Shown here is a 131-nucleotide RNA from Fulvimarina endophytica, a member of the family "ALIL pseudoknot". Lineage of the source: Bacteria > Pseudomonadati > Alphaproteobacteria > Aurantimonadaceae > Fulvimarina. Rfam classes the family as a cis-regulatory element. The family's consensus secondary structure is taken from published work. A search with the family's covariance model found it, with a score of 89 bits.

RNA sequence: GGCGUAAUUUGCCCAGGCGGAGCGAGCCAAAGGGACCUGGGGCGCCGGUUCAAGCCAUGAAGGCGUUCAUCGACAAUCAUCGCGGCGUCUUCGGGGUCGAGCCGAUCUGCAAGGUUCUGCCGAUCGCCCCG
Numbered sequence: 001g002g003c004g005u006a007a008u009u010u011g012c013c014c015a016g017g018c019g020g021a022g023c024g025a026g027c028c029a030a031a032g033g034g035a036c037c038u039g040g041g042g043c044g045c046c047g048g049u050u051c052a053a054g055c056c057a058u059g060a061a062g063g064c065g066u067u068c069a070u071c072g073a074c075a076a077u078c079a080u081c082g083c084g085g086c087g088u089c090u091u092c093g094g095g096g097u098c099g100a101g102c103c104g105a106u107c108u109g110c111a112a113g114g115u116u117c118u119g120c121c122g123a124u125c126g127c128c129c130c131g
Stems, first nucleotide, its partner, number of pairs: 016046004092131005103126002106123002109120003